[Rfam]
RNA sequence: UGCACUCACUAACUGUAAGUUGCUCUGGAUAACAGCGUCUGCUAAAUGACAGAAA
Numbered sequence: 001u002g003c004a005c006u007c008a009c010u011a012a013c014u015g016u017a018a019g020u021u022g023c024u025c026u027g028g029a030u031a032a033c034a035g036c037g038u039c040u041g042c043u044a045a046a047u048g049a050c051a052g053a054a055a
Stems, first nucleotide, its partner, number of pairs: 014044001015042003021037004026032001

Rfam assigns this 55-nucleotide RNA sequence from Coregonus sp. 'balchen' to the family "UnaL2 LINE 3' element".
It is annotated as a cis-regulatory element.
NCBI's taxonomy places the organism under Eukaryota, Bilateria, Vertebrata, Euteleostomi, Coregonus.
The eel long interspersed element (LINE) UnaL2 and its partner short interspersed element (SINE) share a conserved 3' tail containing a stem-loop that is critical for their retrotransposition. Presumably, the first step of retrotransposition is the recognition of their 3' tails by UnaL2-encoded reverse transcriptase. The solution structure of a 17-nucleotide RNA derived from the 3' tail of UnaL2 was determined by NMR.